[Rfam]
RNA sequence: GUGUUUUUCAUAGUAUUAGAUUUAAGGUUAACAGAUGGGUUACGGCGGUAACCCAAUUUUUUUGUC
Numbered sequence: 001g002u003g004u005u006u007u008u009c010a011u012a013g014u015a016u017u018a019g020a021u022u023u024a025a026g027g028u029u030a031a032c033a034g035a036u037g038g039g040u041u042a043c044g045g046c047g048g049u050a051a052c053c054c055a056a057u058u059u060u061u062u063u064g065u066c
Stems, first nucleotide, its partner, number of pairs: 037054007

This 66-nucleotide RNA from Pseudoprevotella muciniphila belongs to the Rfam family "Bacteroidetes FopS (family of paralogous sRNAs)". From the family's description: The RNA-binding protein RbpB and BTncRNA_FopS sRNA are involved in the post-transcription regulation of polysaccharide utilisation loci (PUL). FopS sRNAs function as post-transcriptional repressors by binding to the vicinity of the start codon of the first mRNA of target PUL polycistrons, typically corresponding to the cognate SusC homolog, impeding translation of the respective glycan transporter. Taxonomically the source falls in Pseudoprevotella (Bacteria, Pseudomonadati, Bacteroidota, Bacteroidia). Rfam classes the family as a small RNA.